[Rfam]
Background: Shown here is an 81-nucleotide RNA sequence from Catagonus wagneri, a member of the family "Small nucleolar RNA SNORD115". The literature on the family includes a 2000 paper in Proc Natl Acad Sci U S A by Cavaille et al., "Identification of brain-specific and imprinted small nucleolar RNA genes exhibiting an unusual genomic organization". The source organism's lineage runs through Eukaryota, Metazoa, Chordata, Dipnotetrapodomorpha and Catagonus. Pairs were carried over by alignment from the consensus structure, which was predicted with PFOLD. It is annotated as a C/D-box small nucleolar RNA. The match comes from Rfam's covariance-model search (69 bits).
RNA sequence: GGGUCGAUGAUGUAAGCUCAUAUUGAUAUGAAGAGAAAUGAUGACUUAAAAAUCAUGUUUGAUAGGAUUAAGCUGAGGCUA
Numbered sequence: 001g002g003g004u005c006g007a008u009g010a011u012g013u014a015a016g017c018u019c020a021u022a023u024u025g026a027u028a029u030g031a032a033g034a035g036a037a038a039u040g041a042u043g044a045c046u047u048a049a050a051a052a053u054c055a056u057g058u059u060u061g062a063u064a065g066g067a068u069u070a071a072g073c074u075g076a077g078g079c080u081a
Stems, first nucleotide, its partner, number of pairs: 002080003005075002008072001